[Rfam]
RNA sequence: AUGCCCAUUUAAGACUGCAGUGCUUUAAAUGGCUAACACAGGGGGGUAGAGCACUUCUCUCUAAAACCUGGAGUGCAGGAUUAACCCUCGCUUCGGAUCCUGUCGUGAGAAACAUCC
Dot-bracket structure: .(((((.(((.....(...............).......))).)))))......(.(((.(......(((((((..(((......))).)))))))........).))).)......
RNA: Small nucleolar RNA SNORA26